RNA sequence: GUAUUUUAUGUUGUACAAGCCCUGCAGCACAACUUUAGUAUUAACCUACCUUUAAUGCCACUAUGUAAUUCGUGCAUUACUGCUAGCCAGCAUGUAUAAUAUAUA
Numbered sequence: 001g002u003a004u005u006u007u008a009u010g011u012u013g014u015a016c017a018a019g020c021c022c023u024g025c026a027g028c029a030c031a032a033c034u035u036u037a038g039u040a041u042u043a044a045c046c047u048a049c050c051u052u053u054a055a056u057g058c059c060a061c062u063a064u065g066u067a068a069u070u071c072g073u074g075c076a077u078u079a080c081u082g083c084u085a086g087c088c089a090g091c092a093u094g095u096a097u098a099a100u101a102u103a104u105a
Stems, first nucleotide, its partner, number of pairs: 005096001007094005013087001018081002023037002026034002038058002041054001043052002063077005
A member of the RNA family "Mitochondrial DNA control region secondary structure A" from Macaca nemestrina, 105 nucleotides long. The base pairs follow the family's consensus structure, which is taken from published work. By type it is an antisense RNA.